Molybdenum/Tungsten riboswitch aptamer (Moco RNA motif): a 125-nucleotide RNA from Zhenpiania hominis.
Rfam links the family to the GO terms regulation of gene expression, tungstate binding and molybdenum ion binding.

[Rfam]
RNA sequence: UAAUUAGGAAAAUUCCGAACGCGAAAGCCUGGAGAGUGAAAAGCUUAUGGAUCCGCGUCGAUGGGUAGUUCUGGAAACGGAGCUGCCUCCCGCAUCAUUUGGAAAGGAAUGUUUUAAAGUAGAUA
Numbered sequence: 001u002a003a004u005u006a007g008g009a010a011a012a013u014u015c016c017g018a019a020c021g022c023g024a025a026a027g028c029c030u031g032g033a034g035a036g037u038g039a040a041a042a043g044c045u046u047a048u049g050g051a052u053c054c055g056c057g058u059c060g061a062u063g064g065g066u067a068g069u070u071c072u073g074g075a076a077a078c079g080g081a082g083c084u085g086c087c088u089c090c091c092g093c094a095u096c097a098u099u100u101g102g103a104a105a106g107g108a109a110u111g112u113u114u115u116a117a118a119g120u121a122g123a124u125a
Stems, first nucleotide, its partner, number of pairs: 004118001012110005019058005025052001028050002034046004063088011089102002